Shown here is a 165-nucleotide RNA from Streptomyces albus, a member of the family "c-di-AMP riboswitch aptamer (ydaO/yuaA leader)". For this family Rfam cites "New RNA motifs suggest an expanded scope for riboswitches in bacterial genetic control" (Barrick et al., Proc Natl Acad Sci U S A, 2004). The organism belongs to Streptomyces albus subsp. albus, within Bacteria.

RNA sequence: GGUUUCCACACACUCACCCGUGAAACGGCAGGAGCGGGGGAUCCACAGGCAGUACGCCGUUUCCCCGGUUCAAGGGGACGGCUCGGGGUGAAGCCGCGCGAGCGCGGCGGGGCAUCUCCAGCCCUAACCCGACAGCUCACCUCGCAGGCGCCGGAGAGGAAUCCA
Numbered sequence: 001g002g003u004u005u006c007c008a009c010a011c012a013c014u015c016a017c018c019c020g021u022g023a024a025a026c027g028g029c030a031g032g033a034g035c036g037g038g039g040g041a042u043c044c045a046c047a048g049g050c051a052g053u054a055c056g057c058c059g060u061u062u063c064c065c066c067g068g069u070u071c072a073a074g075g076g077g078a079c080g081g082c083u084c085g086g087g088g089u090g091a092a093g094c095c096g097c098g099c100g101a102g103c104g105c106g107g108c109g110g111g112g113c114a115u116c117u118c119c120a121g122c123c124c125u126a127a128c129c130c131g132a133c134a135g136c137u138c139a140c141c142u143c144g145c146a147g148g149c150g151c152c153g154g155a156g157a158g159g160a161a162u163c164c165a
Base pairs, nucleotide, nucleotide: 004033005032006031034145035144036143037142038141039140044085086130087129088128094107095106096105097104110124111123112122113121
Dot-bracket structure: ...(((........................)))((((((....(........................................)(((.....((((......))))..((((.......))))...))).........))))))....................